[Rfam]
RNA sequence: UGGAGUUAAUCUGGCUAAGGGAAAUCGGCAAAUUGGCUCCGUAACUUCGGGAGAAGGAGUGUCUGCUCUUGCGAAAGAGCAGAUCGCAGUGACCAGGGAGCUCUAACUGUUUAAUAAAAACAUAGGUGAUCGCAAACCCGUAAGGGCUAGUACGAUCGCUGAAUCCUGCCCAGUGCAGGUACCUCAAAACCCGGUUCAACGGGAAGAAGGGCCUGUCAACGGCGGGGGUAACUAUGACCCUCUUAAGGUAGCGUAGUACCUUGCCGCUUAAUUGGCGGCUUGCAUGAAUGGAUCAAUGAGAGCUCUACUGUCCCUAGCCAGAACCCGGUGAAAUUUACAUUCCAGUGCAGAGUCUGGAGA
Number, nucleotide and partner (000 for none) at each position: 001u327002g326003g325004a000005g000006u000007u000008a000009a000010u322011c321012u320013g319014g318015c317016u316017a315018a000019g313020g312021g311022a000023a000024a000025u000026c000027g000028g000029c000030a000031a000032a000033u000034u000035g000036g060037c059038u058039c057040c056041g000042u000043a000044a000045c050046u000047u000048c000049g000050g045051g000052a000053g000054a000055a000056g040057g039058a038059g037060u036061g084062u083063c082064u081065g080066c079067u078068c077069u076070u000071g000072c000073g000074a000075a000076a069077g068078a067079g066080c065081a064082g063083a062084u061085c089086g000087c000088a000089g085090u000091g000092a000093c000094c000095a000096g000097g306098g305099a304100g303101c302102u301103c300104u298105a297106a000107c000108u122109g121110u120111u000112u000113a000114a000115u000116a000117a000118a000119a000120a110121c109122a108123u000124a000125g160126g159127u158128g157129a156130u155131c154132g153133c150134a000135a000136a000137c146138c145139c144140g000141u000142a000143a000144g139145g138146g137147c000148u000149a000150g133151u000152a000153c132154g131155a130156u129157c128158g127159c126160u125161g000162a000163a293164u292165c291166c290167u000168g223169c222170c221171c000172a000173g220174u219175g216176c215177a214178g213179g212180u000181a000182c211183c210184u209185c000186a000187a000188a000189a000190c203191c202192c201193g200194g000195u000196u000197c000198a000199a000200c193201g192202g191203g190204a000205a000206g000207a000208a000209g184210g183211g182212c179213c178214u177215g176216u175217c000218a000219a174220c173221g170222g169223c168224g242225g241226g240227g239228g238229u237230a000231a000232c000233u000234a000235u000236g000237a229238c228239c227240c226241u225242c224243u247244u000245a000246a000247g243248g000249u000250a000251g000252c000253g000254u000255a000256g000257u000258a000259c000260c000261u000262u000263g279264c278265c277266g276267c275268u274269u000270a000271a000272u000273u000274g268275g267276c266277g265278g264279c263280u000281u000282g000283c000284a000285u000286g000287a000288a000289u000290g166291g165292a164293u163294c000295a000296a000297u105298g104299a000300g103301a102302g101303c100304u099305c098306u097307a000308c000309u000310g000311u021312c020313c019314c000315u017316a016317g015318c014319c013320a012321g011322a010323a000324c000325c003326c002327g001328g000329u000330g000331a000332a000333a000334u000335u000336u000337a000338c000339a000340u000341u358342c357343c356344a355345g354346u000347g000348c000349a000350g000351a000352g000353u000354c345355u344356g343357g342358a341359g000360a000
The record is a 360-nucleotide part of an RNA from Candidatus Syntropharchaeum butanivorans, which matches "Archaeal large subunit ribosomal RNA" in Rfam. A search with the family's covariance model found it, with a score of 2967 bits. Lineage of the source: Archaea > Methanobacteriati > Halobacteriota > Candidatus Syntropharchaeales > Candidatus Syntropharchaeum.